[Rfam]
RNA sequence: AGGCAAUGAUGAGCGAAGUAUAGUCUGACCUGGUACUGCCAUGGCGUCUUUUUUGGCACUGACCAGGGUGUGAUCACGCAAUCUUCUCUCUGAGCUG
Number, nucleotide and partner (000 for none) at each position: 001a096002g000003g095004c094005a000006a000007u000008g000009a000010u000011g000012a000013g000014c000015g000016a000017a000018g000019u000020a000021u000022a000023g000024u000025c000026u000027g000028a000029c000030c000031u000032g000033g000034u000035a000036c000037u000038g057039c056040c055041a054042u000043g000044g000045c000046g000047u000048c000049u000050u000051u000052u000053u000054u041055g040056g039057c038058a000059c000060u000061g000062a000063c000064c000065a000066g000067g000068g000069u000070g000071u000072g000073a000074u000075c000076a000077c000078g000079c000080a000081a000082u000083c000084u000085u000086c000087u000088c000089u000090c000091u000092g000093a000094g004095c003096u001097g000
RNA: Z30 small nucleolar RNA